Rfam assigns this 71-nucleotide sequence from Leucobacter sp. 7(1) to the family "tRNA". The match comes from Rfam's covariance-model search (51 bits). Rfam describes the family as follows. Transfer RNA (tRNA) molecules are approximately 80 nucleotides in length. It is annotated as a transfer RNA.
Nucleotides: 071
Base pairs, nucleotide, nucleotide: 001070002069003068004067005066006065007064010024011023012022026042027041028040029039030038047063048062049061050060051059
Number, partner (000 for none) and nucleotide at each position: 001070g002069g003068u004067g005066g006065g007064g008000u009000g010024a011023c012022c013000g014000a015000a016000u017000g018000g019000c020000u021000a022012g023011g024010u025000u026042g027041c028040a029039a030038c031000u032000c033000g034000c035000a036000a037000a038030g039029u040028u041027g042026u043000g044000u045000a046000u047063g048062c049061a050060g051059g052000u053000u054000c055000g056000a057000c058000u059051c060050c061049u062048g063047c064007c065006c066005c067004c068003a069002c070001c071000u